Lysine riboswitch aptamer: a 183-nucleotide RNA from Vallitalea pronyensis. The match comes from Rfam's covariance-model search (115 bits).
RNA sequence: CGGUAUGGUAGAGGCGCAUGUUUCAUGAGUAAGCAAUUGGAUUCGUACAGGCGAAAGAGAAGAUUGGUAAAAGGGUAACAUGCCGAAGAAGAAAAUACCUGUUUCUAUUUUCUGUCUGGGUAUAUAGUGAAUAACUAUAUAACUGUCAUAGACUAAUGAUGGCUAUGGUGUGCUACUUGUGAU
Numbered sequence: 001c002g003g004u005a006u007g008g009u010a011g012a013g014g015c016g017c018a019u020g021u022u023u024c025a026u027g028a029g030u031a032a033g034c035a036a037u038u039g040g041a042u043u044c045g046u047a048c049a050g051g052c053g054a055a056a057g058a059g060a061a062g063a064u065u066g067g068u069a070a071a072a073g074g075g076u077a078a079c080a081u082g083c084c085g086a087a088g089a090a091g092a093a094a095a096u097a098c099c100u101g102u103u104u105c106u107a108u109u110u111u112c113u114g115u116c117u118g119g120g121u122a123u124a125u126a127g128u129g130a131a132u133a134a135c136u137a138u139a140u141a142a143c144u145g146u147c148a149u150a151g152a153c154u155a156a157u158g159a160u161g162g163c164u165a166u167g168g169u170g171u172g173c174u175a176c177u178u179g180u181g182a183u
Stems, first nucleotide, its partner, number of pairs: 007177005016083007024075001032068001034066005087117003090113008118144002121141008146168006